[Rfam]
RNA: Small Cajal body specific RNA 3
Organism: Acanthisitta chloris
RNA sequence: ACUGGAAGCUGCUGGGACCAGUUGUUGGGCAAAACCAAUAUGUUUUGUCCACUCUUGCAGUCUUCCUAGAGCAAAGUGGAGGUCUCUGUCUGCUUUAGGACAGCCAACUAAACCAGAUCGUUCCCCUCCAUACAAC
Numbered sequence: 001a002c003u004g005g006a007a008g009c010u011g012c013u014g015g016g017a018c019c020a021g022u023u024g025u026u027g028g029g030c031a032a033a034a035c036c037a038a039u040a041u042g043u044u045u046u047g048u049c050c051a052c053u054c055u056u057g058c059a060g061u062c063u064u065c066c067u068a069g070a071g072c073a074a075a076g077u078g079g080a081g082g083u084c085u086c087u088g089u090c091u092g093c094u095u096u097a098g099g100a101c102a103g104c105c106a107a108c109u110a111a112a113c114c115a116g117a118u119c120g121u122u123c124c125c126c127u128c129c130a131u132a133c134a135a136c
Stems, first nucleotide, its partner, number of pairs: 004066003008061005026051005033044003078129005086120001088118003092114001094112005